Rfam assigns this 204-nucleotide RNA from Cellulosimicrobium arenosum to the family "Actinobacteria sRNA Ms_IGR-5". It scores 65 bits against the family's covariance model. By type it is a small RNA. NCBI's taxonomy places the organism under Bacteria, Bacillati, Micrococcales, Promicromonosporaceae, Cellulosimicrobium. The pairing is the family consensus, mapped onto this sequence.
RNA sequence: ACACGCGAAAGGAGGUGGUCCAGGAAGUGAAUAUUCUUCGGACUCGUGAGGUGGUGGCGCGCUAGGCGCGCCCCGAUUCGACUGACGGACCGGGCGCGCGGAGCAAGUUCCACGCGACCACCGGGGCCCGCGGGUGUCGUGCACUCGUCCAGCACGACGGGCAUCCUGCCGCACGGCGGGGUGUCAGCCCGCGGGCCUUCCCAC
Dot-bracket structure: ..............((.((..................................)).))..(((..((((.(((..................))).))))..)))...................((((((((((((..(((((.........)))))..............................))))))))))))......